Overview: A member of the RNA family "c-di-GMP-I riboswitch aptamer" from Saccharibacillus brassicae, 91 nucleotides long. From the family's description: GEMM was predicted in a large-scale screen for bacterial structured RNA regulatory elements. It scores 51 bits against the family's covariance model. Its family is annotated with cyclic-di-GMP binding in the Gene Ontology.
[Rfam]
RNA sequence: CCCCGAGAAACGCAAACCACCCGAAAGGCUGGGACGCAAAGUCUGGAAUCUACGUCGAGCGCCCGCUCGCCACGAUCGUCCGACCGCCACG
Numbered sequence: 001c002c003c004c005g006a007g008a009a010a011c012g013c014a015a016a017c018c019a020c021c022c023g024a025a026a027g028g029c030u031g032g033g034a035c036g037c038a039a040a041g042u043c044u045g046g047a048a049u050c051u052a053c054g055u056c057g058a059g060c061g062c063c064c065g066c067u068c069g070c071c072a073c074g075a076u077c078g079u080c081c082g083a084c085c086g087c088c089a090c091g
Stems, first nucleotide, its partner, number of pairs: 012037002017032003021028002041084003045081003048076003056069005